[Rfam]
Nucleotides: 094
Stems, first nucleotide, its partner, number of pairs: 001093002004090004009085008018076001020074003025069001027067001030050008054064002
Number, partner (000 for none) and nucleotide at each position: 001093c002092c003000c004090a005089a006088a007087g008000c009085u010084a011083u012082u013081g014080g015079g016078u017000g018076u019000u020074g021073c022072u023000u024000a025069g026000g027067a028000c029000a030050g031049g032048a033047c034046u035045c036044a037043a038000c039000g040000c041000u042000a043037u044036u045035g046034g047033g048032u049031c050030c051000u052000g053000c054064u055063a056000u057000c058000a059000g060000g061000u062000c063055u064054g065000g066000u067027u068000g069025c070000g071000u072022a073021g074020c075000c076018a077000a078016a079015c080014c081013c082012a083011a084010u085009a086000u087007c088006u089005u090004u091000g092002g093001g094000u